[Rfam]
Nucleotides: 104
Base pairs, nucleotide, nucleotide: 001095002094003093004092005091006090007089008088009087012051013050014049015048017046020043021042024039025038026037027036028035029034054086056084057083064077065076066074067073068072
Number, partner (000 for none) and nucleotide at each position: 001095g002094g003093g004092c005091a006090a007089g008088a009087u010000g011000g012051g013050u014049g015048a016000c017046g018000a019000u020043a021042g022000c023000u024039a025038u026037c027036c028035g029034g030000c031000a032000g033000g034029c035028c036027g037026g038025a039024u040000a041000a042021c043020u044000c045000u046017c047000u048015u049014c050013a051012c052000u053000u054086u055000c056084c057083c058000u059000u060000a061000u062000u063000c064077g065076c066074g067073c068072c069000u070000g071000u072068g073067g074066c075000g076065g077064c078000u079000c080000a081000a082000c083057g084056g085000a086054a087009a088008u089007c090006u091005u092004g093003c094002u095001c096000u097000g098000c099000g100000a101000g102000g103000c104000a

The record is a 104-nucleotide sequence from Massilia glaciei, which matches "traJ-II RNA" in Rfam. A search with the family's covariance model found it, with a score of 87 bits. Rfam classes the family as a cis-regulatory element. The base pairs follow the family's consensus structure, which is taken from published work. Lineage of the source: Bacteria > Pseudomonadati > Betaproteobacteria > Oxalobacteraceae > Massilia.